[Rfam]
RNA sequence: CAGUCCACCUGUUGGAACCCAGUGCCCACCCCGGCGUCCGCACGGCUACGCUGGGCCCGUGCGCGCUCCGCCGAGCACGCAAAGCCGACAGCCGUCGCAUCCCAGGGAGCUCAUUCCAUG
Number, nucleotide and partner (000 for none) at each position: 001c000002a000003g000004u000005c000006c000007a000008c000009c000010u000011g000012u000013u000014g000015g000016a000017a000018c000019c000020c000021a000022g000023u000024g000025c000026c000027c000028a000029c000030c000031c000032c000033g000034g000035c000036g000037u000038c000039c000040g000041c000042a000043c000044g000045g000046c000047u000048a000049c000050g000051c000052u000053g000054g000055g000056c000057c000058c000059g000060u081061g080062c079063g078064c000065g076066c075067u074068c073069c000070g000071c000072c000073g068074a067075g066076c065077a000078c063079g062080c061081a060082a000083a000084g098085c097086c000087g096088a095089c094090a000091g000092c000093c000094g089095u088096c087097g085098c084099a000100u000101c000102c000103c000104a000105g000106g000107g000108a000109g000110c000111u000112c000113a000114u000115u000116c000117c000118a000119u000120g000
Notes: The record is a 120-nucleotide sequence from Streptomyces laurentii, which matches "Streptomyces-metH RNA" in Rfam. It is annotated as a small RNA. Taxonomically the source falls in Streptomyces (Bacteria, Actinomycetes, Kitasatosporales, Streptomycetaceae).